[Rfam]
RNA sequence: CUUACAGGCUGCCUUAUCGCUCUUCGUUUUAACGAGGGGAGGAAAGUCCAGACAAUAUAGAGCACCGUACCCCAGUAAUACUGGGGGAAAGAUUAGGGAAACCUGAUUUUGACAGAGAGUGCCACAGAAAAUAGACGGCCACGCCUUGGCGUGGUAAAGGUGAAAAGGCGAGGUAAGAGCUCACCGCCACGCUGGCAACAGCGUGUGGCUUGGUAAACCUUGCGGAUUGCAAUGCCAAAUAUGCCGGAGCUUGAGGGCUGCUCGUCCGAUCCCGGUGGGUAGGCAGCGUUAGAUAAAUGAUAAGGCUCUGGAGUAAUUCGGAGACAGAAUCUGGCUUAUAGGCCUGUUUUUUUA
Numbered sequence: 001c002u003u004a005c006a007g008g009c010u011g012c013c014u015u016a017u018c019g020c021u022c023u024u025c026g027u028u029u030u031a032a033c034g035a036g037g038g039g040a041g042g043a044a045a046g047u048c049c050a051g052a053c054a055a056u057a058u059a060g061a062g063c064a065c066c067g068u069a070c071c072c073c074a075g076u077a078a079u080a081c082u083g084g085g086g087g088a089a090a091g092a093u094u095a096g097g098g099a100a101a102c103c104u105g106a107u108u109u110u111g112a113c114a115g116a117g118a119g120u121g122c123c124a125c126a127g128a129a130a131a132u133a134g135a136c137g138g139c140c141a142c143g144c145c146u147u148g149g150c151g152u153g154g155u156a157a158a159g160g161u162g163a164a165a166a167g168g169c170g171a172g173g174u175a176a177g178a179g180c181u182c183a184c185c186g187c188c189a190c191g192c193u194g195g196c197a198a199c200a201g202c203g204u205g206u207g208g209c210u211u212g213g214u215a216a217a218c219c220u221u222g223c224g225g226a227u228u229g230c231a232a233u234g235c236c237a238a239a240u241a242u243g244c245c246g247g248a249g250c251u252u253g254a255g256g257g258c259u260g261c262u263c264g265u266c267c268g269a270u271c272c273c274g275g276u277g278g279g280u281a282g283g284c285a286g287c288g289u290u291a292g293a294u295a296a297a298u299g300a301u302a303a304g305g306c307u308c309u310g311g312a313g314u315a316a317u318u319c320g321g322a323g324a325c326a327g328a329a330u331c332u333g334g335c336u337u338a339u340a341g342g343c344c345u346g347u348u349u350u351u352u353u354a
Base pairs, nucleotide, nucleotide: 004347005346006345007344008343009342010341011339012305013304014303015302016301017300018299020039021038022037023036024035025034026033027032044337045336046335048334049333050332051331052330053229054228055227056226060263061262062261063260065225066224067223068222069221071085072084073083074082075081086113088110089109090108114220115219119218120217121214122213123212136159138155139154140153141152142151143150144149167185168184170182171181172180186209187207188205189204190203191202192201193200194199233285234284235283236282243276244275245274246273247272255267256266257265258264
Shown here is a 354-nucleotide RNA, a member of the family "Bacterial RNase P class A". Clan: RNaseP clan. A search with the family's covariance model found it, with a score of 215 bits. Ribonuclease P (RNase P) is a ubiquitous endoribonuclease, found in archaea, bacteria and eukarya as well as chloroplasts and mitochondria. Its best characterised activity is the generation of mature 5'-ends of tRNAs by cleaving the 5'-leader elements of precursor-tRNAs. Cellular RNase Ps are ribonucleoproteins. Its family is annotated with tRNA processing, dimeric ribonuclease P complex and ribonuclease P activity in the Gene Ontology. Rfam classes the family as a ribozyme.